[Rfam]
Rfam assigns this 88-nucleotide RNA from Varanus komodoensis to the family "Small nucleolar RNA SNORD103/SNORD85".
RNA sequence: CCUAGCAAUGAUGAGGCUCUUGCCCUCACUGAGAACAUGGUUCUAUAAUGAGACCUUUCUUGUAUGUACUCAUUUGCUCUGAGCCAGG
Numbered sequence: 001c002c003u004a005g006c007a008a009u010g011a012u013g014a015g016g017c018u019c020u021u022g023c024c025c026u027c028a029c030u031g032a033g034a035a036c037a038u039g040g041u042u043c044u045a046u047a048a049u050g051a052g053a054c055c056u057u058u059c060u061u062g063u064a065u066g067u068a069c070u071c072a073u074u075u076g077c078u079c080u081g082a083g084c085c086a087g088g
Stems, first nucleotide, its partner, number of pairs: 001088003005084002
On this family, see Huttenhofer et al., EMBO J 2001: "RNomics: an experimental approach that identifies 201 candidates for novel, small, non-messenger RNAs in mouse". Its family is annotated with RNA processing and nucleolus in the Gene Ontology. Lineage of the source: Eukaryota > Amniota > Varanoidea > Varanidae > Varanus. Rfam classes the family as a C/D-box small nucleolar RNA. Rfam 15.1 lists 1,349 matches to the family in 595 species.